RNA sequence: CCGUGGGACACGCCUCCCCAACGAGGCGCUUCUAUCUGUGAGGAUAGCUACA
Numbered sequence: 001c002c003g004u005g006g007g008a009c010a011c012g013c014c015u016c017c018c019c020a021a022c023g024a025g026g027c028g029c030u031u032c033u034a035u036c037u038g039u040g041a042g043g044a045u046a047g048c049u050a051c052a
Base pairs, nucleotide, nucleotide: 011028012027013026014025015024016023032047033046034045035044036043037042